The family of this 56-nucleotide RNA sequence is "Streptococcus sRNA SpF59 (ldcC RNA)". By type it is a small RNA.

[Rfam]
RNA sequence: UGACCUGCUUCAAUUUCGAAGCACAAGGCCAUACGGACAGCUAGGUCUAUUGCCGU
Numbered sequence: 001u002g003a004c005c006u007g008c009u010u011c012a013a014u015u016u017c018g019a020a021g022c023a024c025a026a027g028g029c030c031a032u033a034c035g036g037a038c039a040g041c042u043a044g045g046u047c048u049a050u051u052g053c054c055g056u
Base pairs, nucleotide, nucleotide: 002047003046004045005044006023007022008021009020010019011018
Description: For this family Rfam cites "Control of virulence by small RNAs in Streptococcus pneumoniae" (Mann et al., PLoS Pathog, 2012).